[Rfam]
RNA: Qrr RNA
Organism: Vibrio maritimus
RNA sequence: UGACCCUUUUUAAGCCGAGGGUCACCUAGCCAACUGACGUUGUUAGUGAACCUAUUUUGUUCACACUUGUAUAUAGCCAGUCACACGUAAUUCGUGGCUGGCUUUUUUUCU
Numbered sequence: 001u002g003a004c005c006c007u008u009u010u011u012a013a014g015c016c017g018a019g020g021g022u023c024a025c026c027u028a029g030c031c032a033a034c035u036g037a038c039g040u041u042g043u044u045a046g047u048g049a050a051c052c053u054a055u056u057u058u059g060u061u062c063a064c065a066c067u068u069g070u071a072u073a074u075a076g077c078c079a080g081u082c083a084c085a086c087g088u089a090a091u092u093c094g095u096g097g098c099u100g101g102c103u104u105u106u107u108u109u110c111u
Base pairs, nucleotide, nucleotide: 001024002023003022004021005020006019041073042072043071046064047063048062049061050060051059077101078100079099080098081097082096083095084094
Dot-bracket structure: ((((((............))))))................(((..((((((.......))))))......)))...((((((((.........))))))))..........